[Rfam]
RNA sequence: GCCGAGCUCGGUAAUGUGAGCUUGUAACUCAAAUGAGGGCUUUAAAGUGGUUGAAAGGGGGCUAGGCCCAACGUGUAGGGUCUCUUUGUGGAAUUACACCGGACCGCCCUAUCCAAGAAAGAAGUUGGGCUUUGGGUUCUUGGCGAAGGCCCAGGGUUCAUUGCCCUUAGAGAUCGAGGAUACCGCGUGAGGCUGGUUCACAGAGCAGCGUCACCUCCCGCUUCUGUCAGUGGAAGGAUUACGGGCCGGUUCUCUUGGGCCCGAACAUACCCGGUGGGAAUGCCUCACAGCCUAACAACCACUUUU
Dot-bracket structure: ((((((((((......)))))))....(((....))))))...((((((((((..(((((((....((((.((.((.((((((....(.(.((.....((((.(((.((..((((.((.((((((.((((..((((((((.(((....))).))))))))..))))(....)...((((.....((((....(((.....)))....))))..))))..)))))).))..)))).))....))).))))))).)..))))))......)).)).))))...))).).)...))..)))))))))).
RNA: Plant signal recognition particle RNA